A member of the RNA family "tRNA" from Cyclocybe aegerita, 81 nucleotides long.
[Rfam]
RNA sequence: GUCGGUAUCGAUUAGGGGUUAAAUCACUUCGUUGUGGUUACUCAUUCCGAAGAGCCGCUGGUUCGAUUCCAGCUACCGACA
Numbered sequence: 001g002u003c004g005g006u007a008u009c010g011a012u013u014a015g016g017g018g019u020u021a022a023a024u025c026a027c028u029u030c031g032u033u034g035u036g037g038u039u040a041c042u043c044a045u046u047c048c049g050a051a052g053a054g055c056c057g058c059u060g061g062u063u064c065g066a067u068u069c070c071a072g073c074u075a076c077c078g079a080c081a
Stems, first nucleotide, its partner, number of pairs: 001080007010025004027052005057073005
It scores 52 bits against the family's covariance model.